[Rfam]
RNA sequence: GUUUGGGUGAUGACUUACCAGUUUGUCGGAUACCCCUUCACUCCUCAUGAGUGAGAGCAACAGUCUGACAAAC
Number, nucleotide and partner (000 for none) at each position: 001g073002u072003u071004u070005g069006g000007g000008u000009g000010a000011u000012g000013a000014c000015u000016u000017a000018c000019c000020a000021g000022u000023u000024u000025g000026u000027c000028g000029g000030a000031u000032a000033c000034c000035c000036c000037u000038u000039c000040a000041c000042u000043c000044c000045u000046c000047a000048u000049g000050a000051g000052u000053g000054a000055g000056a000057g000058c000059a000060a000061c000062a000063g000064u000065c000066u000067g000068a000069c005070a004071a003072a002073c001

Shown here is a 73-nucleotide RNA from Trogon melanurus, a member of the family "Small nucleolar RNA SNORD101". NCBI's taxonomy places the organism under Eukaryota, Sauropsida, Neoaves, Trogoniformes, Trogon. The family's RNA type in Rfam is C/D-box small nucleolar RNA. A reference for the family is Vitali et al. (2003), "Identification of 13 novel human modification guide RNAs", Nucleic Acids Res.